[Rfam]
RNA sequence: CGCUCAUCCAGAGGGGUGGAGGGACCGGCCCUGCGAAGCCCCGGCAACCACUCGGCUAUGGCGCGCUCGCGAUCCUGCGAGGCCGGCCGGGAGAUGGUGCCAACUCCGGCCUGCGACCAAGGUGGCGCAGGGAAGAUGGGGA
Numbered sequence: 001c002g003c004u005c006a007u008c009c010a011g012a013g014g015g016g017u018g019g020a021g022g023g024a025c026c027g028g029c030c031c032u033g034c035g036a037a038g039c040c041c042c043g044g045c046a047a048c049c050a051c052u053c054g055g056c057u058a059u060g061g062c063g064c065g066c067u068c069g070c071g072a073u074c075c076u077g078c079g080a081g082g083c084c085g086g087c088c089g090g091g092a093g094a095u096g097g098u099g100c101c102a103a104c105u106c107c108g109g110c111c112u113g114c115g116a117c118c119a120a121g122g123u124g125g126c127g128c129a130g131g132g133a134a135g136a137u138g139g140g141g142a
Base pairs, nucleotide, nucleotide: 003140004139005138006137007136008135013042014041015040016039017038021031022030023029025109026108027107028106043101044100045099046098048097049096052091105134110131111130112129113128114127115126